About this RNA
mir-4872 microRNA precursor family: a 76-nucleotide RNA from Branchiostoma floridae. Rfam links the family to the GO terms RISC complex and miRNA-mediated post-transcriptional gene silencing. The sequence is in the family's curated seed alignment.
[Rfam]
RNA sequence: UCACAUGCAGUGCCGGGAUAACUAAAACUCUGAGUUCUGUUUACUUCAGAGUUUUGGUACCCCGGCUCCAUAUGGA
Numbered sequence: 001u002c003a004c005a006u007g008c009a010g011u012g013c014c015g016g017g018a019u020a021a022c023u024a025a026a027a028c029u030c031u032g033a034g035u036u037c038u039g040u041u042u043a044c045u046u047c048a049g050a051g052u053u054u055u056g057g058u059a060c061c062c063c064g065g066c067u068c069c070a071u072a073u074g075g076a
Stems, first nucleotide, its partner, number of pairs: 001076002004074004010068001012066006019059002022056001024055010034044002